Small nucleolar RNA SNORA8: a 139-nucleotide RNA sequence from Chrysochloris asiatica. Gene Ontology terms of the family: nucleolus and RNA processing. The base pairs follow the family's consensus structure, which was predicted with RNAfold. The family's RNA type in Rfam is H/ACA-box small nucleolar RNA. The family is grouped with related families in Rfam's "SNORA8 clan".
RNA sequence: CUCACUGCAUGGUAUCUGCAUGCAGCAGUCUAUUCCAGUCGGGAUGUUCAAUGGACAGUGGGUUAGAAAUUCAUUGUCUGGCCUCAUUGGUUUUCUUAGCUUUGUGCAUGUUAAACUAGGUAUUUCUAUCAAUACAACU
Numbered sequence: 001c002u003c004a005c006u007g008c009a010u011g012g013u014a015u016c017u018g019c020a021u022g023c024a025g026c027a028g029u030c031u032a033u034u035c036c037a038g039u040c041g042g043g044a045u046g047u048u049c050a051a052u053g054g055a056c057a058g059u060g061g062g063u064u065a066g067a068a069a070u071u072c073a074u075u076g077u078c079u080g081g082c083c084u085c086a087u088u089g090g091u092u093u094u095c096u097u098a099g100c101u102u103u104g105u106g107c108a109u110g111u112u113a114a115a116c117u118a119g120g121u122a123u124u125u126c127u128a129u130c131a132a133u134a135c136a137a138c139u
Stems, first nucleotide, its partner, number of pairs: 002061006015054002018047004023042001025039002028036001064128007071120002081107002084104001